[Rfam]
Shown here is a 112-nucleotide RNA, a member of the family "Termite-leu RNA". Rfam classes the family as a cis-regulatory element. It is one of the family's seed sequences.

RNA sequence: AUCAGCCGGUAAUGGCACAGAAUUCCUUUUUAGGAAAAUCUGCAGCCUUACCGGAUUUCUCAAGUUCCGGAGUGGAAAAAGACCACUUACGGGAUUGAAGUAUUUAUGGAGG
Numbered sequence: 001a002u003c004a005g006c007c008g009g010u011a012a013u014g015g016c017a018c019a020g021a022a023u024u025c026c027u028u029u030u031u032a033g034g035a036a037a038a039u040c041u042g043c044a045g046c047c048u049u050a051c052c053g054g055a056u057u058u059c060u061c062a063a064g065u066u067c068c069g070g071a072g073u074g075g076a077a078a079a080a081g082a083c084c085a086c087u088u089a090c091g092g093g094a095u096u097g098a099a100g101u102a103u104u105u106a107u108g109g110a111g112g
Stems, first nucleotide, its partner, number of pairs: 006054007014047002060098002063096007070088006